Shown here is a 99-nucleotide RNA sequence from Chromobacterium violaceum, a member of the family "Glycine riboswitch aptamer".
RNA sequence: UUCGCGCAAUCUGGAGAGCGGCGUCCGCGCGACGCCCACCGAAGGGGCUAACGGCUUAUCCGGCCGGAAAAUCUCAGGUGCAGGGACAGAGGGGUGUGG
Numbered sequence: 001u002u003c004g005c006g007c008a009a010u011c012u013g014g015a016g017a018g019c020g021g022c023g024u025c026c027g028c029g030c031g032a033c034g035c036c037c038a039c040c041g042a043a044g045g046g047g048c049u050a051a052c053g054g055c056u057u058a059u060c061c062g063g064c065c066g067g068a069a070a071a072u073c074u075c076a077g078g079u080g081c082a083g084g085g086a087c088a089g090a091g092g093g094g095u096g097u098g099g
Stems, first nucleotide, its partner, number of pairs: 007093001010090004020036004038079003041075002045073002052066004